FMN riboswitch aptamer (RFN element): a 144-nucleotide sequence from Brevundimonas sp. SH203.

[Rfam]
Nucleotides: 144
Stems, first nucleotide, its partner, number of pairs: 004141007017029003031124002033114002035061004056112002064090002094110005116127003
Number, partner (000 for none) and nucleotide at each position: 001000c002000a003000g004141u005140g006139u007138u008137c009136u010135c011000a012000g013000g014000g015000c016000g017029g018028g019027g020000c021000g022000a023000a024000a025000u026000u027019c028018c029017c030000c031124a032123c033114c034113g035061g036060c037059g038058g039000u040000a041000a042000g043000g044000c045000g046000g047000c048000g049000a050000c051000g052000c053000c054000a055000a056112g057111c058038c059037c060036g061035c062000g063000a064090g065089c066000g067000c068000u069000c070000u071000c072000c073000c074000c075000g076000c077000c078000a079000g080000g081000a082000g083000a084000g085000g086000u087000c088000a089065g090064c091000a092000g093000a094110u095109c096108c097107g098106g099000u100000g101000c102000g103000a104000u105000u106098c107097c108096g109095g110094g111057g112056c113034c114033g115000a116127c117126g118125g119000u120000a121000u122000a123032g124031u125118c126117c127116g128000g129000a130000u131000g132000a133000a134000a135010g136009a137008g138007a139006a140005c141004g142000g143000g144000a